[Rfam]
RNA sequence: AGUGAUGGCGCGGGAGAGAUCGUCACACCACCAUGACGACGCCGACGGAGCAACCGCCCCGGAAACUCUCAGGCAACAGGACCGCGAUAUCAGG
Number, nucleotide and partner (000 for none) at each position: 001a000002g000003u000004g000005a000006u089007g088008g000009c086010g085011c084012g083013g082014g000015a000016g000017a000018g000019a000020u039021c038022g037023u036024c035025a034026c000027a000028c000029c000030a000031c000032c000033a000034u025035g024036a023037c022038g021039a020040c000041g074042c073043c072044g070045a069046c000047g000048g068049a067050g066051c000052a000053a000054c062055c061056g000057c000058c000059c000060c000061g055062g054063a000064a000065a000066c050067u049068c048069u045070c044071a000072g043073g042074c041075a000076a000077c000078a000079g000080g000081a000082c013083c012084g011085c010086g009087a000088u007089a006090u000091c000092a000093g000094g000
Record summary
Rfam assigns this 94-nucleotide RNA sequence from Paraburkholderia sediminicola to the family "Glycine riboswitch aptamer". Taxonomically the source falls in Paraburkholderia (Bacteria, Pseudomonadota, Betaproteobacteria, Burkholderiales). A search with the family's covariance model found it, with a score of 66 bits.